[Rfam]
RNA sequence: UUUUAGCCCCGAUAGAAGCGGCAUCCUUUUGGGUUGCGGGUGGAGCAACGCGGAGGCCGUGACCCAAAAGAUACAGCGGAUAGCGGGAAUAAGC
Numbered sequence: 001u002u003u004u005a006g007c008c009c010c011g012a013u014a015g016a017a018g019c020g021g022c023a024u025c026c027u028u029u030u031g032g033g034u035u036g037c038g039g040g041u042g043g044a045g046c047a048a049c050g051c052g053g054a055g056g057c058c059g060u061g062a063c064c065c066a067a068a069a070g071a072u073a074c075a076g077c078g079g080a081u082a083g084c085g086g087g088a089a090u091a092a093g094c
Base pairs, nucleotide, nucleotide: 009086010085011084013082014081018077019076023072024071025070029067030066031065032064033063034062035061036060037059038058039057
This 94-nucleotide RNA sequence from Chryseobacterium hagamense belongs to the Rfam family "Flavo-1 RNA". Taxonomically the source falls in Chryseobacterium (Bacteria, Pseudomonadati, Flavobacteriia, Flavobacteriales).